Rfam assigns this 89-nucleotide RNA sequence from Spiribacter salilacus to the family "SAH (S-adenosyl-L-homocysteine) riboswitch aptamer".
Taxonomically the source falls in Spiribacter (Bacteria, Pseudomonadati, Pseudomonadota, Chromatiales).
RNA sequence: CGUGGCGAGGAGCGCUGCACCUACAUCGGUUGUCCGAUUAUGGGGAGGCUCGUUUCGCGGGGCAUUAAUCACAACGGCGCUCGACCGCA
Numbered sequence: 001c002g003u004g005g006c007g008a009g010g011a012g013c014g015c016u017g018c019a020c021c022u023a024c025a026u027c028g029g030u031u032g033u034c035c036g037a038u039u040a041u042g043g044g045g046a047g048g049c050u051c052g053u054u055u056c057g058c059g060g061g062g063c064a065u066u067a068a069u070c071a072c073a074a075c076g077g078c079g080c081u082c083g084a085c086c087g088c089a
Stems, first nucleotide, its partner, number of pairs: 002056001004054005021043003025039001